[Rfam]
RNA sequence: UGAUAUCCGGAUCAAUAGGUCAAAAAAGUUGUUCGCGCUUGCACGAUAAGACUUUUAAACUUGGAACCCGCCAAAUAUGAGAAAGUAACGAUUUACGUAGUAAAUCAGAGGAUUUUGAAUGUUUGAGAAUUGCGGGAGCGGCUUCGCAGCGGAACAAUUCAUGGAUAUCA
Numbered sequence: 001u002g003a004u005a006u007c008c009g010g011a012u013c014a015a016u017a018g019g020u021c022a023a024a025a026a027a028g029u030u031g032u033u034c035g036c037g038c039u040u041g042c043a044c045g046a047u048a049a050g051a052c053u054u055u056u057a058a059a060c061u062u063g064g065a066a067c068c069c070g071c072c073a074a075a076u077a078u079g080a081g082a083a084a085g086u087a088a089c090g091a092u093u094u095a096c097g098u099a100g101u102a103a104a105u106c107a108g109a110g111g112a113u114u115u116u117g118a119a120u121g122u123u124u125g126a127g128a129a130u131u132g133c134g135g136g137a138g139c140g141g142c143u144u145c146g147c148a149g150c151g152g153a154a155c156a157a158u159u160c161a162u163g164g165a166u167a168u169c170a
Stems, first nucleotide, its partner, number of pairs: 001170007010067001012065002017061002020058001024056007032048001033046003037042001072125007081116004089108001090106007127160006138150002141147001
A member of the RNA family "Clostridiales-1 RNA" from Firmicutes bacterium CAG:95, 170 nucleotides long.
The source organism's lineage runs through Bacteria, Bacillati and Bacillota.